[Rfam]
RNA sequence: UCCGGGGGAAGCUCGCCGAUGAGGCCACACGCGGGGUGCAUGUCACCCGCCCUCGCCUCUGGGAAGGUCUGAGACUGGGGCCCGCGCCGCCCCAGCAGGGCGCCGCCCGCGCGGGCGGGUGAGCCCCCAGCCAUGGGGCCCGGCCGGGGCCGCUCCGGGCAGGAGAAGCGGCCGCGCCCCGGCGCCCCGCGGAUGCCCAGCCCCGGCCCGGCUUGGGAACGACUCACGGCCGGCAGCACGAGUGCAAUGGGCCGAGGCAGCGCCGCCCGCGGGGCUGCAACCCAAUUCAGACUACUCUCCCCUGGG
Numbered sequence: 001u002c003c004g005g006g007g008g009a010a011g012c013u014c015g016c017c018g019a020u021g022a023g024g025c026c027a028c029a030c031g032c033g034g035g036g037u038g039c040a041u042g043u044c045a046c047c048c049g050c051c052c053u054c055g056c057c058u059c060u061g062g063g064a065a066g067g068u069c070u071g072a073g074a075c076u077g078g079g080g081c082c083c084g085c086g087c088c089g090c091c092c093c094a095g096c097a098g099g100g101c102g103c104c105g106c107c108c109g110c111g112c113g114g115g116c117g118g119g120u121g122a123g124c125c126c127c128c129a130g131c132c133a134u135g136g137g138g139c140c141c142g143g144c145c146g147g148g149g150c151c152g153c154u155c156c157g158g159g160c161a162g163g164a165g166a167a168g169c170g171g172c173c174g175c176g177c178c179c180c181g182g183c184g185c186c187c188c189g190c191g192g193a194u195g196c197c198c199a200g201c202c203c204c205g206g207c208c209c210g211g212c213u214u215g216g217g218a219a220c221g222a223c224u225c226a227c228g229g230c231c232g233g234c235a236g237c238a239c240g241a242g243u244g245c246a247a248u249g250g251g252c253c254g255a256g257g258c259a260g261c262g263c264c265g266c267c268c269g270c271g272g273g274g275c276u277g278c279a280a281c282c283c284a285a286u287u288c289a290g291a292c293u294a295c296u297c298u299c300c301c302c303u304g305g306g
Base pairs, nucleotide, nucleotide: 001306002305003304004303007300008299009298012256013255014254015253016251017250021059022058023057024056034048035047036046037045038044069290070289071288072287073286079231080230081229082228088102089101090100091099092098103118104117105116106115107114108113119227120226121225122224123223125221138212139211140210257278258277259276260275261274263272264271265270

This 306-nucleotide sequence from Alligator mississippiensis belongs to the Rfam family "Nuclear RNase P". Taxonomically the source falls in Alligator (Eukaryota, Gnathostomata, Amniota, Sauria). It scores 137 bits against the family's covariance model. Rfam describes the family as follows. Ribonuclease P (RNase P) is a ubiquitous endoribonuclease, found in archaea, bacteria and eukarya as well as chloroplasts and mitochondria. Its Rfam clan is "RNaseP clan". For this family Rfam cites "The Ribonuclease P Database" (Brown, Nucleic Acids Res, 1999).